[Rfam]
RNA: Rhizobiales sRNA Atu_Ti1
RNA sequence: GUCCACGUGGCAGUGGACCAGAGCCAUAAUCCUCCCAGGACGAUGGCGACAGCCGGCCAAUAUCGCGAUGUCAUCAUCGCGAGGCCGGCUGU
Numbered sequence: 001g002u003c004c005a006c007g008u009g010g011c012a013g014u015g016g017a018c019c020a021g022a023g024c025c026a027u028a029a030u031c032c033u034c035c036c037a038g039g040a041c042g043a044u045g046g047c048g049a050c051a052g053c054c055g056g057c058c059a060a061u062a063u064c065g066c067g068a069u070g071u072c073a074u075c076a077u078c079g080c081g082a083g084g085c086c087g088g089c090u091g092u
Stems, first nucleotide, its partner, number of pairs: 001018004023047004031039002049092010063082007